Description: The record is a 90-nucleotide RNA sequence from a Solemya velum gill symbiont, which matches "c-di-GMP-I-GGC riboswitch aptamer" in Rfam. The family is grouped with related families in Rfam's "c-di-GMP_I riboswitch clan". It scores 67 bits against the family's covariance model. NCBI's taxonomy places the organism under Bacteria, Pseudomonadati, Pseudomonadota, Gammaproteobacteria, sulfur-oxidizing symbionts.

RNA sequence: UAAGUAAAAGGCAAACCUUUCGAAAGAGGGGGACGCAAAGCCACCGGCCUGACUGACAUUUAUUUGUUGAAGGUAGCGGGGUUGCACAAC
Dot-bracket structure: ..........((...((((((....))))))..[))..((((.((((((......................))).]))))))).......